[Rfam]
RNA: MIR8024 microRNA precursor family
RNA sequence: UUGAAGGAUUUGAAGACUUUACCUUGCAAACUUGAAGAAUUUAAAAAAUUCAACUUGCAUACUUAACUGAAUUUAAAGACUUCAAGC
Numbered sequence: 001u002u003g004a005a006g007g008a009u010u011u012g013a014a015g016a017c018u019u020u021a022c023c024u025u026g027c028a029a030a031c032u033u034g035a036a037g038a039a040u041u042u043a044a045a046a047a048a049u050u051c052a053a054c055u056u057g058c059a060u061a062c063u064u065a066a067c068u069g070a071a072u073u074u075a076a077a078g079a080c081u082u083c084a085a086g087c
Base pairs, nucleotide, nucleotide: 001085002084003083004082005081006080009077010076011075012074013073014072017069019066020065021064025059026058027057028056032053033052034051035050036049
Dot-bracket structure: ((((((..((((((..(.(((...((((...(((((............)))))..))))....)))..)..))))))..))))))..